The record is an 86-nucleotide RNA sequence from Candidatus Competibacter denitrificans, which matches "c-di-GMP-I riboswitch aptamer" in Rfam. It scores 70 bits against the family's covariance model. Its family is annotated with cyclic-di-GMP binding in the Gene Ontology.
[Rfam]
RNA sequence: AUCUGUAAAAGGUAUAGCUACCGAAAGGUAGUGACACAAAGUCACCGGUCUAAGGGGCCAUGCUCUAUGACAGCGGAACCGCCAGA
Numbered sequence: 001a002u003c004u005g006u007a008a009a010a011g012g013u014a015u016a017g018c019u020a021c022c023g024a025a026a027g028g029u030a031g032u033g034a035c036a037c038a039a040a041g042u043c044a045c046c047g048g049u050c051u052a053a054g055g056g057g058c059c060a061u062g063c064u065c066u067a068u069g070a071c072a073g074c075g076g077a078a079c080c081g082c083c084a085g086a
Stems, first nucleotide, its partner, number of pairs: 012037002017032006041079002045076003048071003055065004